A member of the RNA family "MIR444 microRNA precursor family" from Triticum aestivum, 102 nucleotides long. The organism belongs to Triticum, within Eukaryota. Rfam links the family to the GO terms miRNA-mediated post-transcriptional gene silencing and RISC complex. Rfam's curators put it in the seed alignment. The base pairs follow the family's consensus structure, which was predicted with RNAalifold. A reference for the family is Sunkar et al. (2008), "Identification of novel and candidate miRNAs in rice by high throughput sequencing", BMC Plant Biol.
RNA sequence: GGAAGGCGCAAGUAGGACACCUGCAUUACUUGCAAACAAGGCGCACCAUACUUGUGGCUUUCUUGCAAGUCGUGCAGUUGCUGCCUCAAGCUUGCUGCCUCC
Numbered sequence: 001g002g003a004a005g006g007c008g009c010a011a012g013u014a015g016g017a018c019a020c021c022u023g024c025a026u027u028a029c030u031u032g033c034a035a036a037c038a039a040g041g042c043g044c045a046c047c048a049u050a051c052u053u054g055u056g057g058c059u060u061u062c063u064u065g066c067a068a069g070u071c072g073u074g075c076a077g078u079u080g081c082u083g084c085c086u087c088a089a090g091c092u093u094g095c096u097g098c099c100u101c102c
Stems, first nucleotide, its partner, number of pairs: 009094005016087002020083001024074003029069001031067005038060003042056001